Shown here is a 119-nucleotide RNA, a member of the family "drum RNA". The family's RNA type in Rfam is small RNA. It is one of the family's seed sequences.
RNA sequence: CGUCUACUACAAGAUGUAUGUGGCUUGGUUAGACGAGUGAUAUACGUAGACAAUACUGGGGUUUGCAUAGUUUCCACAAUCUGACUAGAUUUGAGAGAAUCGAAAGAAAAUAUGUUGAA
Numbered sequence: 001c002g003u004c005u006a007c008u009a010c011a012a013g014a015u016g017u018a019u020g021u022g023g024c025u026u027g028g029u030u031a032g033a034c035g036a037g038u039g040a041u042a043u044a045c046g047u048a049g050a051c052a053a054u055a056c057u058g059g060g061g062u063u064u065g066c067a068u069a070g071u072u073u074c075c076a077c078a079a080u081c082u083g084a085c086u087a088g089a090u091u092u093g094a095g096a097g098a099a100u101c102g103a104a105a106g107a108a109a110a111u112a113u114g115u116u117g118a119a
Stems, first nucleotide, its partner, number of pairs: 002051003016045006023038005029084004065115003088101004